[Rfam]
RNA: Eukaryotic large subunit ribosomal RNA, nucleotides 591 to 881
Organism: Blastocystis hominis
RNA sequence: GAGUCUAUCAUAUUUGCGAGUAGUUUAGUGUUAAACUAAAAUGCGUAAUGAAGGUAAUGGUUGUGACAGCUUUGUAUAGAUAGAGCUAGCAACAACUACCGGUCUUGCAUCUCUGAUAAAGGAUUCGAGUAUUAGCAAAGAUGGUGGGACCCGAAAGAUGGUGAACUAUGCCUGAAUAGGACGAAGCCAGGGGAAACUCUGGUGGAGGUUCGAGUGGAUUCUAACGUGCAAAUUGAUCUUUAAAUUUGGGUAUAGGGGCGAAAGACUAAUCGAACCAUCUAGUAGCUGGUU
Numbered sequence: 001g002a003g004u005c006u007a008u009c010a011u012a013u014u015u016g017c018g019a020g021u022a023g024u025u026u027a028g029u030g031u032u033a034a035a036c037u038a039a040a041a042u043g044c045g046u047a048a049u050g051a052a053g054g055u056a057a058u059g060g061u062u063g064u065g066a067c068a069g070c071u072u073u074g075u076a077u078a079g080a081u082a083g084a085g086c087u088a089g090c091a092a093c094a095a096c097u098a099c100c101g102g103u104c105u106u107g108c109a110u111c112u113c114u115g116a117u118a119a120a121g122g123a124u125u126c127g128a129g130u131a132u133u134a135g136c137a138a139a140g141a142u143g144g145u146g147g148g149a150c151c152c153g154a155a156a157g158a159u160g161g162u163g164a165a166c167u168a169u170g171c172c173u174g175a176a177u178a179g180g181a182c183g184a185a186g187c188c189a190g191g192g193g194a195a196a197c198u199c200u201g202g203u204g205g206a207g208g209u210u211c212g213a214g215u216g217g218a219u220u221c222u223a224a225c226g227u228g229c230a231a232a233u234u235g236a237u238c239u240u241u242a243a244a245u246u247u248g249g250g251u252a253u254a255g256g257g258g259c260g261a262a263a264g265a266c267u268a269a270u271c272g273a274a275c276c277a278u279c280u281a282g283u284a285g286c287u288g289g290u291u
Stems, first nucleotide, its partner, number of pairs: 005147007013139005020044003025039005048055002060096005068087006098130002100127003103123003109117002150289002153286001157279006166255011177243001179211004186203007216239003220236002223234002257267002